[Rfam]
RNA: Group II catalytic intron D1-D4-2
Organism: Cysteiniphilum litorale
RNA sequence: GAAGGCAGACCCUUCGAAGUCGACUUCCAGAGGUAGGCUUCAAACCACUUCAAGUGGCUGUUAUUAAGAGUAAUUGGUCAUGAGCAUUGAAGUAAAGUGCGAGUUAUCAACUCGGCAGGU
Numbered sequence: 001g002a003a004g005g006c007a008g009a010c011c012c013u014u015c016g017a018a019g020u021c022g023a024c025u026u027c028c029a030g031a032g033g034u035a036g037g038c039u040u041c042a043a044a045c046c047a048c049u050u051c052a053a054g055u056g057g058c059u060g061u062u063a064u065u066a067a068g069a070g071u072a073a074u075u076g077g078u079c080a081u082g083a084g085c086a087u088u089g090a091a092g093u094a095a096a097g098u099g100c101g102a103g104u105u106a107u108c109a110a111c112u113c114g115g116c117a118g119g120u
Stems, first nucleotide, its partner, number of pairs: 001015005016041006023034004046119001048092006054081002057078003061073004097116002100114004